[Rfam]
Annotation
This 76-nucleotide RNA sequence from Merdimmobilis hominis belongs to the Rfam family "Fluoride riboswitch aptamer (crcB RNA motif)". The family has 289 seed sequences and 2,293 matches in Rfam 15.1. A search with the family's covariance model found it, with a score of 43 bits. A reference for the family is Baker et al. (2012), "Widespread genetic switches and toxicity resistance proteins for fluoride", Science. The base pairs follow the family's consensus structure, which is taken from published work.
RNA sequence: UAAACGGCAGGGAAUGAAGUACUCCCCCGGGAAACCGAAACCGCUUGUUUUUUAAGCUGAUGACUUCUGUGAUUUU
Numbered sequence: 001u002a003a004a005c006g007g008c009a010g011g012g013a014a015u016g017a018a019g020u021a022c023u024c025c026c027c028c029g030g031g032a033a034a035c036c037g038a039a040a041c042c043g044c045u046u047g048u049u050u051u052u053u054a055a056g057c058u059g060a061u062g063a064c065u066u067c068u069g070u071g072a073u074u075u076u
Stems, first nucleotide, its partner, number of pairs: 010026004016067005043057004
Dot-bracket structure: .........[[[[..(((((..]]]]................((((.......)))).....))))).........